[Rfam]
RNA sequence: AUGGAUUUGAUGAAUAUUUCCCCAGAUGAUCGAAGCUGAAAUAACUGAGCGCUUUAUAAUGCAUUUUCUCCUCUUUAGGGGAAAAUCCAAGCCAGAUAUUCUGAUCCAU
Number, nucleotide and partner (000 for none) at each position: 001a109002u108003g107004g106005a105006u104007u103008u000009g000010a000011u000012g000013a000014a000015u000016a000017u000018u000019u000020c000021c000022c000023c000024a000025g000026a000027u000028g000029a000030u000031c000032g000033a000034a000035g000036c000037u000038g000039a000040a000041a000042u000043a000044a000045c000046u000047g000048a000049g000050c000051g000052c000053u000054u000055u000056a000057u000058a000059a000060u000061g000062c000063a000064u000065u000066u000067u000068c000069u000070c000071c000072u000073c000074u000075u000076u000077a000078g000079g000080g000081g000082a000083a000084a000085a000086u000087c000088c000089a000090a000091g000092c000093c000094a000095g000096a000097u000098a000099u000100u000101c000102u000103g007104a006105u005106c004107c003108a002109u001
RNA: Small nucleolar RNA Z103
Organism: Solanum lycopersicum